[Rfam]
RNA sequence: UCUAGAACUCGAUAAAUGGGCUAAACACUGAACAAUGUCUGGGCUGCAUGAUAGAUUUAGACAUCUCUUUUGUUGCUAAGAUUUGAACUUGAAAAAAGAAGAUUUAAAUCUUGGACUCUUUAUAAAAAUUUUAGGCCUAUAACUUAGCUUUCCAUC
Number, nucleotide and partner (000 for none) at each position: 001u000002c000003u154004a000005g152006a151007a150008c147009u146010c000011g145012a144013u000014a000015a000016a140017u139018g138019g137020g136021c134022u133023a132024a131025a130026c000027a129028c000029u127030g000031a000032a000033c000034a000035a123036u122037g121038u000039c000040u000041g119042g118043g117044c000045u115046g000047c000048a112049u000050g110051a109052u108053a000054g105055a104056u000057u102058u101059a000060g000061a000062c098063a000064u000065c000066u000067c000068u092069u091070u000071u000072g088073u087074u086075g000076c000077u000078a000079a000080g000081a000082u000083u000084u000085g000086a074087a073088c072089u000090u000091g069092a068093a000094a000095a000096a000097a000098g062099a000100a000101g058102a057103u000104u055105u054106a000107a000108a052109u051110c050111u000112u048113g000114g000115a045116c000117u043118c042119u041120u000121u037122a036123u035124a000125a000126a000127a029128a000129u027130u025131u024132u023133a022134g021135g000136c020137c019138u018139a017140u016141a000142a000143c000144u012145u011146a009147g008148c000149u000150u007151u006152c005153c000154a003155u000156c000
The family of this 156-nucleotide RNA from Populus alba is "MIR2912 microRNA precursor family".
Pairs were carried over by alignment from the consensus structure, which was predicted with RNAalifold.
Lineage of the source: Eukaryota > Streptophytina > eudicotyledons > Malpighiales > Populus.
The match comes from Rfam's covariance-model search (118 bits).
Gene Ontology terms of the family: miRNA-mediated post-transcriptional gene silencing and RISC complex.